[Rfam]
RNA sequence: AUACUUACGUGGCAGGGGAGAUACCGUGAUCAAGAAGGCGGUUCACCCAGGGCGAGGCUCGGCCAUUGCACUCUGGCUGUGCUGACCCCUUCGAAUUCCCCAAAUGUGGGAGUCUUGACUGCAUAAUUUCUGGUAGUGGGGGACUGCGUUUGCGCUCUCUCCUG
Numbered sequence: 001a002u003a004c005u006u007a008c009g010u011g012g013c014a015g016g017g018g019a020g021a022u023a024c025c026g027u028g029a030u031c032a033a034g035a036a037g038g039c040g041g042u043u044c045a046c047c048c049a050g051g052g053c054g055a056g057g058c059u060c061g062g063c064c065a066u067u068g069c070a071c072u073c074u075g076g077c078u079g080u081g082c083u084g085a086c087c088c089c090u091u092c093g094a095a096u097u098c099c100c101c102a103a104a105u106g107u108g109g110g111a112g113u114c115u116u117g118a119c120u121g122c123a124u125a126a127u128u129u130c131u132g133g134u135a136g137u138g139g140g141g142g143a144c145u146g147c148g149u150u151u152g153c154g155c156u157c158u159c160u161c162c163u164g
Stems, first nucleotide, its partner, number of pairs: 012122004016048003020044002023042005049090004054086001056083003060079005092117003095113003099109002138163006146155003
RNA: U1 spliceosomal RNA
Organism: Denticeps clupeoides